[Rfam]
RNA sequence: CUGUCUCCCAGGCUUGUUUUCCGUUGCCUGCGGUUUGUUCUGAUAACUCAGGCAGCGAAAGCAAGUCUGGGAGGCUG
Numbered sequence: 001c002u003g004u005c006u007c008c009c010a011g012g013c014u015u016g017u018u019u020u021c022c023g024u025u026g027c028c029u030g031c032g033g034u035u036u037g038u039u040c041u042g043a044u045a046a047c048u049c050a051g052g053c054a055g056c057g058a059a060a061g062c063a064a065g066u067c068u069g070g071g072a073g074g075c076u077g
Stems, first nucleotide, its partner, number of pairs: 003075002006072003010068011022057009032047001
The record is a 77-nucleotide RNA from Bucco capensis, which matches "mir-1788 microRNA precursor family" in Rfam.